The family of this 72-nucleotide RNA is "pemK RNA". The family's RNA type in Rfam is cis-regulatory element.
RNA sequence: ACAAUGAUACUCCUGUCCCUUGAUUUCAGGGGGCAGCUCGGAGCGUUCCUCGGAGGGGUGAGAUUCCCGUGA
Number, nucleotide and partner (000 for none) at each position: 001a000002c000003a000004a000005u000006g000007a000008u000009a000010c000011u000012c069013c036014u035015g034016u033017c032018c031019c030020u029021u028022g027023a000024u000025u000026u000027c022028a021029g020030g019031g018032g017033g016034c015035a014036g013037c055038u054039c053040g000041g051042a050043g049044c000045g000046u000047u000048c000049c043050u042051c041052g000053g039054a038055g037056g068057g067058g066059u000060g000061a000062g000063a000064u000065u000066c058067c057068c056069g012070u000071g000072a000